[Rfam]
Nucleotides: 306
Base pairs, nucleotide, nucleotide: 001040002039003038004023005022006021007020008019009018010017028037029036030035043306044305045304046303047302048301049300052297053296056293057292058290059289063284064283065282066281067280068279069278070277072275074274075273076272077271078265080263081262082261083260084259087257090255091254094252099251100250101249102248103247104246105245106244108239109238112237113236114235115234116233118230119229120228121227122226123225124224125223126222128167129166130165131164132163133162135160136159137158138157139156140155141154142153144151145150168173175220176219177218178217179216184213186211187210188209193204194203195202
Number, partner (000 for none) and nucleotide at each position: 001040g002039c003038c004023g005022g006021g007020c008019u009018u010017g011000g012000u013000a014000a015000c016000g017010c018009g019008a020007g021006c022005c023004u024000g025000u026000g027000a028037u029036c030035c031000a032000a033000g034000u035030g036029g037028a038003g039002g040001c041000g042000u043306a044305a045304g046303g047302g048301u049300g050000u051000c052297a053296g054000a055000a056293c057292a058290u059289u060000g061000u062000u063284c064283a065282a066281g067280c068279c069278u070277a071000c072275c073000a074274u075273g076272a077271c078265u079000a080263g081262a082261u083260c084259a085000u086000g087257g088000c089000u090255a091254g092000c093000a094252a095000u096000c097000u098000g099251c100250u101249g102248g103247c104246c105245u106244g107000c108239c109238c110000g111000u112237u113236u114235c115234c116233a117000a118230g119229c120228g121227a122226a123225g124224a125223a126222u127000u128167g129166a130165g131164c132163c133162a134000a135160g136159u137158g138157g139156u140155u141154c142153a143000a144151g145150c146000g147000a148000a149000a150145g151144c152000a153142u154141g155140a156139g157138c158137u159136g160135c161000g162133u163132g164131g165130c166129u167128c168173u169000u170000a171000g172000a173168g174000u175220g176219g177218a178217g179216g180000g181000u182000a183000c184213u185000g186211c187210g188209u189000c190000a191000g192000g193204c194203u195202g196000g197000a198000u199000u200000u201000a202195c203194a204193g205000a206000g207000c208000a209188g210187c211186g212000a213184g214000a215000a216179c217178c218177u219176c220175c221000c222126a223125u224124u225123c226122u227121u228120u229119g230118c231000a232000g233116u234115g235114g236113a237112a238109g239108g240000a241000u242000a243000a244106c245105a246104g247103g248102c249101u250100a251099g252094u253000g254091c255090u256000u257087c258000c259084u260083g261082a262081u263080c264000c265078a266000u267000c268000a269000a270000a271077g272076u273075c274074a275072g276000a277070u278069g279068g280067g281066c282065u283064u284063g285000u286000c287000c288000a289059a290058a291000u292057u293056g294000g295000a296053c297052u298000u299000u300049c301048a302047c303046c304045u305044u306043u
This 306-nucleotide RNA from Olea europaea belongs to the Rfam family "Plant signal recognition particle RNA". Rfam classes the family as a non-coding RNA gene. The match comes from Rfam's covariance-model search (236 bits). The family's consensus secondary structure is taken from published work. The source organism's lineage runs through Eukaryota, Lamiales, Oleeae, Olea and Olea europaea.